This 373-nucleotide RNA sequence from Burkholderiales bacterium PBB5 belongs to the Rfam family "transfer-messenger RNA".

RNA sequence: GGGGCCGACCUGGCUUCGACGUGGGUGCGGAGUCGGUUCAGGGCAUGCCGAGCACCAGUUCGCUCGUAAAACCACUGGAAACAAAGUAACUGCGAACGAUACUUCGUACGCCCUCGCCGCUUAAACACCGGUGAGCCUCGCAACGGUUGGCCGAUGGGCCGGGCCUGAGUCGCAAGACAAGGGCUGCGAGGUUAUCUACAUUGGCUGGUGCCGCGCCGGGUCACAAGGUGCGGAGCGAGACAAAAGUGACUGGCGGGUUCGGUAGCGUGCUGCUGCGCGACCGGAACCGUGAGACUCAAAUCAGACAGCUACGCAUGUAGAACUGGCCGGUGAUGGCUUGCGGACGGGGGUUCGAUUCCCCCCGGCUCCACCA
Numbered sequence: 001g002g003g004g005c006c007g008a009c010c011u012g013g014c015u016u017c018g019a020c021g022u023g024g025g026u027g028c029g030g031a032g033u034c035g036g037u038u039c040a041g042g043g044c045a046u047g048c049c050g051a052g053c054a055c056c057a058g059u060u061c062g063c064u065c066g067u068a069a070a071a072c073c074a075c076u077g078g079a080a081a082c083a084a085a086g087u088a089a090c091u092g093c094g095a096a097c098g099a100u101a102c103u104u105c106g107u108a109c110g111c112c113c114u115c116g117c118c119g120c121u122u123a124a125a126c127a128c129c130g131g132u133g134a135g136c137c138u139c140g141c142a143a144c145g146g147u148u149g150g151c152c153g154a155u156g157g158g159c160c161g162g163g164c165c166u167g168a169g170u171c172g173c174a175a176g177a178c179a180a181g182g183g184c185u186g187c188g189a190g191g192u193u194a195u196c197u198a199c200a201u202u203g204g205c206u207g208g209u210g211c212c213g214c215g216c217c218g219g220g221u222c223a224c225a226a227g228g229u230g231c232g233g234a235g236c237g238a239g240a241c242a243a244a245a246g247u248g249a250c251u252g253g254c255g256g257g258u259u260c261g262g263u264a265g266c267g268u269g270c271u272g273c274u275g276c277g278c279g280a281c282c283g284g285a286a287c288c289g290u291g292a293g294a295c296u297c298a299a300a301u302c303a304g305a306c307a308g309c310u311a312c313g314c315a316u317g318u319a320g321a322a323c324u325g326g327c328c329g330g331u332g333a334u335g336g337c338u339u340g341c342g343g344a345c346g347g348g349g350g351u352u353c354g355a356u357u358c359c360c361c362c363c364g365g366c367u368c369c370a371c372c373a
Stems, first nucleotide, its partner, number of pairs: 001369007020342007032331006039325003044317005049066005055078005113135007136191006144161004150205007208236002211233006219251006253290004258285005265278003269309004275301001346362005